A member of the RNA family "mir-451 microRNA precursor family" from Ophiophagus hannah, 59 nucleotides long. Rfam links the family to the GO terms RISC complex and miRNA-mediated post-transcriptional gene silencing. It is one of the family's seed sequences. Taxonomically the source falls in Ophiophagus (Eukaryota, Sarcopterygii, Amniota, Squamata). On this family, see Gal et al., Biochem Biophys Res Commun 2008: "MIR-451 and Imatinib mesylate inhibit tumor growth of Glioblastoma stem cells".
RNA sequence: GUCAGCGAAACCGUUACCAUUACUGAGUUUAGUAAUGGUAAGGGUUCUUCUGCCCCGCC
Number, nucleotide and partner (000 for none) at each position: 001g054002u000003c052004a051005g050006c000007g000008a000009a046010a045011c044012c043013g000014u041015u040016a039017c038018c037019a036020u035021u034022a033023c032024u031025g030026a000027g000028u000029u000030u025031a024032g023033u022034a021035a020036u019037g018038g017039u016040a015041a014042g000043g012044g011045u010046u009047c000048u000049u000050c005051u004052g003053c000054c001055c000056c000057g000058c000059c000